[Rfam]
RNA sequence: UCUUUCCUUGUCUUGGGGUGGUAUGGGACACUCAAUGAACGUGUAGUGAGAGUAUCCCUGCUAACACCAUAAUCAACACCUUCGCAUCACCUGAGCUUCUUGCUUGGGCUAUGGUGCAAUUUUUGGAACC
Numbered sequence: 001u002c003u004u005u006c007c008u009u010g011u012c013u014u015g016g017g018g019u020g021g022u023a024u025g026g027g028a029c030a031c032u033c034a035a036u037g038a039a040c041g042u043g044u045a046g047u048g049a050g051a052g053u054a055u056c057c058c059u060g061c062u063a064a065c066a067c068c069a070u071a072a073u074c075a076a077c078a079c080c081u082u083c084g085c086a087u088c089a090c091c092u093g094a095g096c097u098u099c100u101u102g103c104u105u106g107g108g109c110u111a112u113g114g115u116g117c118a119a120u121u122u123u124u125g126g127a128a129c130c
Stems, first nucleotide, its partner, number of pairs: 006018004021061003027056002030053004039047002084117006090108002093105004
Background
Rfam assigns this 130-nucleotide RNA from Salmo trutta to the family "U4atac minor spliceosomal RNA". The literature on the family includes a 2005 paper in RNA by Lorkovic et al., "Evolutionary conservation of minor U12-type spliceosome between plants and humans". A search with the family's covariance model found it, with a score of 94 bits. The source organism's lineage runs through Eukaryota, Eumetazoa, Gnathostomata, Salmoninae and Salmo. U4atac is an essential component of the minor U12-type spliceosome complex which is required for removal of the rarer class of eukaryotic introns (AT-AC, U12-type). Its family is annotated with spliceosomal tri-snRNP complex assembly, pre-mRNA 5'-splice site binding and U4atac snRNP in the Gene Ontology. By type it is a spliceosomal small nuclear RNA.